[Rfam]
RNA sequence: GGCGCGGGGCUGGCGAACGCCCCAUCAGGCUUCGGCCCAAGUUCGCAUCCUUCGUCACCUGACAGAGAGGAUGCGCCAUG
Numbered sequence: 001g002g003c004g005c006g007g008g009g010c011u012g013g014c015g016a017a018c019g020c021c022c023c024a025u026c027a028g029g030c031u032u033c034g035g036c037c038c039a040a041g042u043u044c045g046c047a048u049c050c051u052u053c054g055u056c057a058c059c060u061g062a063c064a065g066a067g068a069g070g071a072u073g074c075g076c077c078a079u080g
Base pairs, nucleotide, nucleotide: 006023007022008021009020010019045074046073047072048071049070050069
RNA: chrB-a RNA
Organism: Thalassobaculum litoreum